This 75-nucleotide RNA from Streptomyces sp. SAJ15 belongs to the Rfam family "ASpks TB sRNA".
By type it is an antisense RNA.
Pairs were carried over by alignment from the consensus structure, which is taken from published work.
It scores 79 bits against the family's covariance model.
Rfam 15.1 lists 9,052 matches to the family in 683 species.
The literature on the family includes a 2009 paper in Mol Microbiol by Arnvig and Young, "Identification of small RNAs in Mycobacterium tuberculosis".
[Rfam]
RNA sequence: CUUCACCGUGCCCAGCCAGAGCGGUCGGUCGGCGGGCCGGUCCUCACCGUAGGUGGCGAGGAGCGCCUGGGCCUC
Dot-bracket structure: ..............(((.....))).......(....((...(((.(((....))).)))...))...)......